[Rfam]
Nucleotides: 129
Stems, first nucleotide, its partner, number of pairs: 005053003010048002024042004065121003073112003078107002083102006
Number, partner (000 for none) and nucleotide at each position: 001000a002000a003000a004000a005053u006052c007051u008000g009000a010048g011047a012000a013000c014000a015000a016000c017000c018000a019000c020000a021000g022000g023000c024042a025041u026040g027039g028000c029000u030000c031000a032000g033000c034000u035000u036000u037000g038000c039027c040026u041025g042024u043000g044000a045000c046000a047011u048010c049000g050000g051007g052006g053005a054000a055000a056000a057000g058000a059000g060000c061000a062000a063000g064000u065121g066120g067119c068000u069000a070000u071000u072000u073112c074111u075110a076000c077000a078107c079106u080000c081000a082000g083102u084101g085100u086099u087098c088097a089000g090000a091000a092000g093000c094000c095000a096000g097088u098087g099086a100085g101084c102083a103000c104000u105000a106079a107078g108000a109000a110075u111074g112073g113000u114000u115000u116000g117000u118000a119067g120066c121065c122000u123000g124000a125000c126000a127000u128000u129000u